[Rfam]
RNA sequence: GAGGUAUGCAUUGAGACCCACUGCCUUCAUAUGUAGGCGAGUGGGAGCAUCAGCAUCCCGAGA
Numbered sequence: 001g002a003g004g005u006a007u008g009c010a011u012u013g014a015g016a017c018c019c020a021c022u023g024c025c026u027u028c029a030u031a032u033g034u035a036g037g038c039g040a041g042u043g044g045g046a047g048c049a050u051c052a053g054c055a056u057c058c059c060g061a062g063a
Stems, first nucleotide, its partner, number of pairs: 003059002006056001008054001017045005022039005
Dot-bracket structure: ..((.(.(........((((((((((........))))).)))))........).).))....